[Rfam]
RNA: U7 small nuclear RNA
RNA sequence: GAGUGUUACGUCUCUUUUAGAAUUUGUCUAGCAGGUUUUCCAGUUUUUACUGGAAAGCCCCC
Number, nucleotide and partner (000 for none) at each position: 001g000002a000003g000004u000005g000006u000007u000008a000009c000010g000011u000012c000013u000014c000015u000016u000017u000018u000019a000020g000021a000022a000023u000024u000025u000026g000027u000028c000029u000030a000031g000032c000033a000034g059035g058036u057037u056038u055039u054040c053041c052042a051043g050044u049045u000046u000047u000048u000049a044050c043051u042052g041053g040054a039055a038056a037057g036058c035059c034060c000061c000062c000